[Rfam]
RNA sequence: GAAUAAAAGUGAAUAUGGAGUCGUAUAUAUCCGGGAAUAUGGCCUGGACGUUUCUACCGGAACACCUUAAAUGUUCUGACUACGCAUGAAAAGUGUUUGCCG
Numbered sequence: 001g002a003a004u005a006a007a008a009g010u011g012a013a014u015a016u017g018g019a020g021u022c023g024u025a026u027a028u029a030u031c032c033g034g035g036a037a038u039a040u041g042g043c044c045u046g047g048a049c050g051u052u053u054c055u056a057c058c059g060g061a062a063c064a065c066c067u068u069a070a071a072u073g074u075u076c077u078g079a080c081u082a083c084g085c086a087u088g089a090a091a092a093g094u095g096u097u098u099g100c101c102g
Stems, first nucleotide, its partner, number of pairs: 019087001022084004030048006058078007
A member of the RNA family "Purine riboswitch aptamer" from Sporosarcina pasteurii, 102 nucleotides long. Its family is annotated with purine nucleobase biosynthetic process in the Gene Ontology.